[Rfam]
RNA: Actinobacteria sRNA Ms_IGR-5
RNA sequence: ACACGAGAAGGGAGGUGGUCCGAAGUUGGAUAUCAACAGGACUCGUGAGGUGACUGUCCGCUAGCGGACGGCAGAACGAUUGGACUGACCAAGCAGGCGCCUCGGCCACCUGUCGGCUCGUACCCUGCUUCGUUUUGUUGCCUGCCAGUGAAUACCAGGCAGUCACCGGUUCCCCGGUGCUCCCGAGCAACGGUCCGGCUCGGGCCCGCGCGUUUGACGGCGUGCGGGAGGCGCACCGG
Numbered sequence: 001a002c003a004c005g006a007g008a009a010g011g012g013a014g015g016u017g018g019u020c021c022g023a024a025g026u027u028g029g030a031u032a033u034c035a036a037c038a039g040g041a042c043u044c045g046u047g048a049g050g051u052g053a054c055u056g057u058c059c060g061c062u063a064g065c066g067g068a069c070g071g072c073a074g075a076a077c078g079a080u081u082g083g084a085c086u087g088a089c090c091a092a093g094c095a096g097g098c099g100c101c102u103c104g105g106c107c108a109c110c111u112g113u114c115g116g117c118u119c120g121u122a123c124c125c126u127g128c129u130u131c132g133u134u135u136u137g138u139u140g141c142c143u144g145c146c147a148g149u150g151a152a153u154a155c156c157a158g159g160c161a162g163u164c165a166c167c168g169g170u171u172c173c174c175c176g177g178u179g180c181u182c183c184c185g186a187g188c189a190a191c192g193g194u195c196c197g198g199c200u201c202g203g204g205c206c207c208g209c210g211c212g213u214u215u216g217a218c219g220g221c222g223u224g225c226g227g228g229a230g231g232c233g234c235a236c237c238g239g
Stems, first nucleotide, its partner, number of pairs: 014058006059150004064145002067142001069140002072137008174239007183203006